[Rfam]
RNA sequence: GAAACGUGAACCCGGCACCGCACCCGCGGGCAAGACCGGGACCGUCCCACCGCAAGGGCAGGACUGCC
Number, nucleotide and partner (000 for none) at each position: 001g000002a000003a000004a000005c000006g000007u000008g000009a000010a000011c040012c039013c038014g037015g036016c000017a000018c029019c028020g027021c026022a000023c000024c000025c000026g021027c020028g019029g018030g000031c000032a000033a000034g000035a000036c015037c014038g013039g012040g011041a000042c000043c000044g064045u063046c062047c061048c000049a000050c058051c057052g000053c000054a000055a000056g000057g051058g050059c000060a000061g047062g046063a045064c044065u000066g000067c000068c000